[Rfam]
RNA sequence: AGUGGUUCUCGGGUGAUCCACCCUGGAAUGAGGCUCCUUCCUCUCUGGUUCCAGGUGUGUCACCUGAGAAUUGCA
Numbered sequence: 001a002g003u004g005g006u007u008c009u010c011g012g013g014u015g016a017u018c019c020a021c022c023c024u025g026g027a028a029u030g031a032g033g034c035u036c037c038u039u040c041c042u043c044u045c046u047g048g049u050u051c052c053a054g055g056u057g058u059g060u061c062a063c064c065u066g067a068g069a070a071u072u073g074c075a
Base pairs, nucleotide, nucleotide: 002074003073005071006070007069008068009067010066011065012064013063014062015061016060017059019057020056021055022054025052026051027050028049029048031046032045033044
RNA: mir-9223 microRNA precursor family